[Rfam]
RNA sequence: GUGCAAAUCAGCCUGAAGCUGUUUAUGUAUAUGUGAAUAUCCGUAACUAGUACGUAUGCCUCCCCGGCAUAGACAGGUAAGA
Numbered sequence: 001g002u003g004c005a006a007a008u009c010a011g012c013c014u015g016a017a018g019c020u021g022u023u024u025a026u027g028u029a030u031a032u033g034u035g036a037a038u039a040u041c042c043g044u045a046a047c048u049a050g051u052a053c054g055u056a057u058g059c060c061u062c063c064c065c066g067g068c069a070u071a072g073a074c075a076g077g078u079a080a081g082a
Stems, first nucleotide, its partner, number of pairs: 018051003023046005029040004055071006
RNA: Bacteroides-1 RNA